A member of the RNA family "permuted transfer-messenger RNA" from Gellertiella hungarica, 218 nucleotides long. The match comes from Rfam's covariance-model search (164 bits). Rfam describes the family as follows. Bacterial tmRNA, also known as 10Sa RNA or SsrA, is named for its dual tRNA and mRNA-like properties. The family's consensus secondary structure is taken from published work.

[Rfam]
Nucleotides: 218
Base pairs, nucleotide, nucleotide: 001137002136003135004134005133014127015126016125017124026116027115028114030113031112032111036052037051038050039049040048053098054097055096056095057094058093059092138153139152140151141150
Number, partner (000 for none) and nucleotide at each position: 001137g002136g003135c004134a005133a006000u007000a008000a009000a010000c011000u012000g013000g014127c015126g016125a017124u018000g019000a020000a021000a022000u023000a024000a025000g026116c027115c028114u029000a030113u031112u032111g033000g034000a035000c036052c037051c038050g039049g040048g041000g042000g043000c044000g045000g046000u047000a048040c049039c050038c051037g052036g053098c054097g055096c056095c057094u058093c059092c060000a061000c062000c063000a064000c065000a066000a067000a068000c069000c070000g071000c072000c073000g074000c075000u076000c077000g078000g079000g080000g081000c082000g083000g084000c085000u086000u087000g088000u089000g090000a091000u092059g093058g094057g095056g096055g097054c098053g099000a100000a101000a102000u103000a104000g105000g106000a107000u108000c109000g110000a111032c112031a113030a114028g115027g116026g117000u118000g119000u120000a121000a122000a123000g124017a125016u126015c127014g128000u129000u130000c131000u132000u133005u134004u135003g136002c137001u138153c139152g140151g141150c142000a143000u144000g145000a146000u147000a148000c149000c150141g151140c152139c153138g154000u155000u156000a157000u158000c159000g160000g161000g162000u163000c164000a165000a166000a167000a168000a169000g170000u171000g172000u173000a174000g175000u176000u177000g178000c179000a180000a181000a182000c183000g184000a185000c186000a187000a188000c189000a190000a191000c192000g193000c194000u195000a196000a197000g198000g199000g200000u201000u202000a203000u204000g205000c206000u207000c208000u209000c210000g211000c212000u213000g214000c215000c216000u217000a218000a